[Rfam]
RNA sequence: GAUUGCAGUGAUGACUAUAUAAAAAUUCAAGCUCAACAGACUGGAAUACAGUUUUGUGUGUGUGUCGACAAUCCAAUAAUGAGCUGAGCUAUC
Numbered sequence: 001g002a003u004u005g006c007a008g009u010g011a012u013g014a015c016u017a018u019a020u021a022a023a024a025a026u027u028c029a030a031g032c033u034c035a036a037c038a039g040a041c042u043g044g045a046a047u048a049c050a051g052u053u054u055u056g057u058g059u060g061u062g063u064g065u066c067g068a069c070a071a072u073c074c075a076a077u078a079a080u081g082a083g084c085u086g087a088g089c090u091a092u093c
Base pairs, nucleotide, nucleotide: 001093002092003091005089006088

Small nucleolar RNA Z107/R87: a 93-nucleotide sequence from Aquilegia coerulea. Pairs were carried over by alignment from the consensus structure, which was predicted with RNAfold. Rfam 15.1 lists 783 matches to the family in 221 species. NCBI's taxonomy places the organism under Eukaryota, Streptophytina, Spermatophyta, Thalictroideae, Aquilegia.